Rfam assigns this 101-nucleotide sequence to the family "GP20-a RNA". Rfam's curators put it in the seed alignment. It is annotated as a cis-regulatory element.
RNA sequence: AUUCGUCAAUGCGGUGAGACAUUUAAACUAACCGUACAUUCCAUCGCAGAAAGCGACUGCGGCUUUAUAAAUUAAACUGAUUGAAGAAUGUGAAAGGAGAA
Numbered sequence: 001a002u003u004c005g006u007c008a009a010u011g012c013g014g015u016g017a018g019a020c021a022u023u024u025a026a027a028c029u030a031a032c033c034g035u036a037c038a039u040u041c042c043a044u045c046g047c048a049g050a051a052a053g054c055g056a057c058u059g060c061g062g063c064u065u066u067a068u069a070a071a072u073u074a075a076a077c078u079g080a081u082u083g084a085a086g087a088a089u090g091u092g093a094a095a096g097g098a099g100a101a
Stems, first nucleotide, its partner, number of pairs: 005020003011035005037090005044062005
Dot-bracket structure: ....[[[...(((((..]]]..........))))).(((((..(((((.........))))).......................)))))...........